Shown here is a 54-nucleotide RNA from Cyprinus carpio, a member of the family "UnaL2 LINE 3' element". The family's RNA type in Rfam is cis-regulatory element. Lineage of the source: Eukaryota > Bilateria > Actinopterygii > Ostariophysi > Cyprinus carpio. The match comes from Rfam's covariance-model search (56 bits). The family's consensus secondary structure is taken from published work.

RNA sequence: UGUUAGCCUGAAUGUAAGUCGCUUUGAAUAAAAGCAUCUGCUAAAUGUGUAAAU
Numbered sequence: 001u002g003u004u005a006g007c008c009u010g011a012a013u014g015u016a017a018g019u020c021g022c023u024u025u026g027a028a029u030a031a032a033a034g035c036a037u038c039u040g041c042u043a044a045a046u047g048u049g050u051a052a053a054u
Stems, first nucleotide, its partner, number of pairs: 013043001014041003021035005